Shown here is a 95-nucleotide RNA from Candidatus Vesicomyidisocius calyptogenae, a member of the family "Bacterial small signal recognition particle RNA". The family's consensus secondary structure is taken from published work. Its Rfam clan is "SRP clan". The source organism's lineage runs through Bacteria, Pseudomonadati, Pseudomonadota, Gammaproteobacteria and Candidatus Vesicomyidisocius. The signal recognition particle (SRP) is a universally conserved ribonucleoprotein involved in the co-translational targeting of proteins to membranes.

[Rfam]
RNA sequence: CAAGGUUGUACCAACAAUAAAUGGUUAUGAACUCCGCCAGAUCUGGAAAGAAGCAACGGUAAUAAUUUUCUAUGUGUUGGAUGAUAUUCUUGGUG
Dot-bracket structure: ...((.((..(((((.(((.(.((((((.....(((.....(((....))).....)))..)))))).).))))..))))....)).))......